[Rfam]
RNA sequence: GGGCUUUUAAGUCACUAGUGGUUCCGUUUAGUAGAUAAAUGUACACUAUUUCAAAUGGUGCCCUAGUGACUGCAAAGCCU
Dot-bracket structure: (((((((..(((((((((.(((.((((((.(.(((((.........)))))))))))).))))))))))))..)))))))
mir-224 microRNA precursor family: an 80-nucleotide RNA from Octodon degus. The organism belongs to Octodon, within Eukaryota. Its family is annotated with cellular response to lipopolysaccharide, miRNA-mediated post-transcriptional gene silencing and cellular response to leukemia inhibitory factor in the Gene Ontology.